[Rfam]
RNA sequence: AAAUACCUGAAAGGCGGUAUCCUCCUCCCACCGUCUUUUGGGGAUAGCGGCCAGCACCUCCUCCCGCUGGUCCGAUAUAGGAAAAGGCCGGCACCUCCUCCCGCCGGCCUUUUUC
Numbered sequence: 001a002a003a004u005a006c007c008u009g010a011a012a013g014g015c016g017g018u019a020u021c022c023u024c025c026u027c028c029c030a031c032c033g034u035c036u037u038u039u040g041g042g043g044a045u046a047g048c049g050g051c052c053a054g055c056a057c058c059u060c061c062u063c064c065c066g067c068u069g070g071u072c073c074g075a076u077a078u079a080g081g082a083a084a085a086g087g088c089c090g091g092c093a094c095c096u097c098c099u100c101c102c103g104c105c106g107g108c109c110u111u112u113u114u115c
Stems, first nucleotide, its partner, number of pairs: 007041003011037007050071005082113011
Notes:
Shown here is a 115-nucleotide RNA from Allomesorhizobium alhagi, a member of the family "Alphaproteobacterial ar14". Taxonomically the source falls in Allomesorhizobium alhagi (Bacteria, Pseudomonadati, Alphaproteobacteria, Allomesorhizobium). From the family's description: Smr14C2 was renamed NfeR1 (Nodule Formation Efficiency RNA) highly expressed in salt stress and during the symbiotic interaction on legume roots. On this family, see del Val et al., RNA Biol 2012: "A survey of sRNA families in alpha-proteobacteria". It scores 71 bits against the family's covariance model. The pairing is the family consensus, mapped onto this sequence.